A member of the RNA family "Plastid-psbA-3 3UTR RNA" from Fraxinus pennsylvanica, 56 nucleotides long.
Plastid psbA-3 is a non-coding RNA (ncRNA) present in plastids. It was identified in inverted repeat sequences in the 3 prime untranslate region (3UTR) of photosystem II quinone-binding protein (psbA).
Clan: Plastid-psbA 3UTR RNA clan.
A reference for the family is Richter et al. (2023), "Retrograde signaling in plants: A critical review focusing on the GUN pathway and beyond", Plant Commun.
Rfam classes the family as a cis-regulatory element.
Lineage of the source: Eukaryota > Streptophytina > Spermatophyta > lamiids > Fraxinus.
[Rfam]
RNA sequence: AAAGGAGCAAUAAUGCCCUCUUGUUCUAUCAAGAAGGGUUUAUUGCUCCUUUAUUU
Numbered sequence: 001a002a003a004g005g006a007g008c009a010a011u012a013a014u015g016c017c018c019u020c021u022u023g024u025u026c027u028a029u030c031a032a033g034a035a036g037g038g039u040u041u042a043u044u045g046c047u048c049c050u051u052u053a054u055u056u
Stems, first nucleotide, its partner, number of pairs: 001052013019034005